The record is a 110-nucleotide sequence from Enemella evansiae, which matches "TPP riboswitch aptamer (THI element)" in Rfam. The family's consensus secondary structure is taken from published work.

RNA sequence: GACGUUCUUCGCGGGAGUCCGAGGCAUCGGGCUGAGAGGGGGCUGUGCCGCCCCGACCGUUGCAACUUGGUCCGGAUCAUGCCGGCGUAAGGAGAAGUCGAUGGAAUCAC
Numbered sequence: 001g002a003c004g005u006u007c008u009u010c011g012c013g014g015g016a017g018u019c020c021g022a023g024g025c026a027u028c029g030g031g032c033u034g035a036g037a038g039g040g041g042g043c044u045g046u047g048c049c050g051c052c053c054c055g056a057c058c059g060u061u062g063c064a065a066c067u068u069g070g071u072c073c074g075g076a077u078c079a080u081g082c083c084g085g086c087g088u089a090a091g092g093a094g095a096a097g098u099c100g101a102u103g104g105a106a107u108c109a110c
Base pairs, nucleotide, nucleotide: 007097008096009095010094011060012059013058014057017032018031019030020029021028039054040053041052042051043050066091067090068089069088072085073084074083075082